[Rfam]
RNA sequence: GUAAAAUGAACGUCGAUUAAGUUCGCUACGUCCUGUAGCAACAUCGACAUCAUGCACAUCAUGUGCA
Numbered sequence: 001g002u003a004a005a006a007u008g009a010a011c012g013u014c015g016a017u018u019a020a021g022u023u024c025g026c027u028a029c030g031u032c033c034u035g036u037a038g039c040a041a042c043a044u045c046g047a048c049a050u051c052a053u054g055c056a057c058a059u060c061a062u063g064u065g066c067a
Stems, first nucleotide, its partner, number of pairs: 012048006025039005053067005

Shown here is a 67-nucleotide sequence from Bacillus coahuilensis, a member of the family "Bacillaceae-1 RNA".
By type it is a small RNA.
Pairs were carried over by alignment from the consensus structure, which is taken from published work.